Rfam assigns this 554-nucleotide part of an RNA from Tepidanaerobacter syntrophicus to the family "Bacterial small subunit ribosomal RNA".
Rfam links the family to the GO terms structural constituent of ribosome and ribosome.
The family has 99 seed sequences and 42,628 matches in Rfam 15.1.
The organism belongs to Tepidanaerobacter, within Bacteria.
RNA sequence: UAACAUGAGAGUUUGAUCCUGGCUCAGGACGAACGCUGGCGGCGUGCCUAACACAUGCAAGUCGAGCGGAGUUUGGCCGGUUUUAAUUUCGGUUAAAACCGGCCAAACUUAGCGGCGGACGGGUGAGUAACACGUAGGUAACCUGCCCAUGACACGGGGAUAGCUUCGGGAAACCGAAGGUAAUACCCGAUACCUUUACGCAUCCAAUGGUGUGUAAAGAAAGCGAUUUAGCGGUCAUGGAUGGGCCUGCGUCCCAUUAGCUAGUUGGUGAGAUAACAGCCCACCAAGGCAACGAUGGGUAGCCGGCCUGAGAGGGCGACCGGCCACACUGGAACUUAGAUACGGUCCAGACUCCUACGGGAGGCAGCAGUGGGGAAUUUUGCGCAAUGGGGGAAACCCUGACGCAGCGACGCCGCGUGAGCGAUGAAGGCCUUCGGGUCGUAAAGCUCAGUCAUUGGGGAUGAAAAGGACAGUACCCAAAGAGGAAGCCCCGGCUAACUACGUGCCAGCAGCCGCGGUAAUACGUAGGGGGCGAGCGUUGUCCGGAAUUACUG
Numbered sequence: 001u002a003a004c005a006u007g008a009g010a011g012u013u014u015g016a017u018c019c020u021g022g023c024u025c026a027g028g029a030c031g032a033a034c035g036c037u038g039g040c041g042g043c044g045u046g047c048c049u050a051a052c053a054c055a056u057g058c059a060a061g062u063c064g065a066g067c068g069g070a071g072u073u074u075g076g077c078c079g080g081u082u083u084u085a086a087u088u089u090c091g092g093u094u095a096a097a098a099c100c101g102g103c104c105a106a107a108c109u110u111a112g113c114g115g116c117g118g119a120c121g122g123g124u125g126a127g128u129a130a131c132a133c134g135u136a137g138g139u140a141a142c143c144u145g146c147c148c149a150u151g152a153c154a155c156g157g158g159g160a161u162a163g164c165u166u167c168g169g170g171a172a173a174c175c176g177a178a179g180g181u182a183a184u185a186c187c188c189g190a191u192a193c194c195u196u197u198a199c200g201c202a203u204c205c206a207a208u209g210g211u212g213u214g215u216a217a218a219g220a221a222a223g224c225g226a227u228u229u230a231g232c233g234g235u236c237a238u239g240g241a242u243g244g245g246c247c248u249g250c251g252u253c254c255c256a257u258u259a260g261c262u263a264g265u266u267g268g269u270g271a272g273a274u275a276a277c278a279g280c281c282c283a284c285c286a287a288g289g290c291a292a293c294g295a296u297g298g299g300u301a302g303c304c305g306g307c308c309u310g311a312g313a314g315g316g317c318g319a320c321c322g323g324c325c326a327c328a329c330u331g332g333a334a335c336u337u338a339g340a341u342a343c344g345g346u347c348c349a350g351a352c353u354c355c356u357a358c359g360g361g362a363g364g365c366a367g368c369a370g371u372g373g374g375g376a377a378u379u380u381u382g383c384g385c386a387a388u389g390g391g392g393g394a395a396a397c398c399c400u401g402a403c404g405c406a407g408c409g410a411c412g413c414c415g416c417g418u419g420a421g422c423g424a425u426g427a428a429g430g431c432c433u434u435c436g437g438g439u440c441g442u443a444a445a446g447c448u449c450a451g452u453c454a455u456u457g458g459g460g461a462u463g464a465a466a467a468g469g470a471c472a473g474u475a476c477c478c479a480a481a482g483a484g485g486a487a488g489c490c491c492c493g494g495c496u497a498a499c500u501a502c503g504u505g506c507c508a509g510c511a512g513c514c515g516c517g518g519u520a521a522u523a524c525g526u527a528g529g530g531g532g533c534g535a536g537c538g539u540u541g542u543c544c545g546g547a548a549u550u551a552c553u554g
Stems, first nucleotide, its partner, number of pairs: 009025005027544004032540006039416006045409002047374001052372003056369003061116003066113002070109002073106015123327003132252008142244002147240007155189004164179006195218010223232002253299003260290003265287006272280001302324004306317004329350005352363004380406001382405003388401005419449004429440004453485001455480005463471001488533005499528005509516002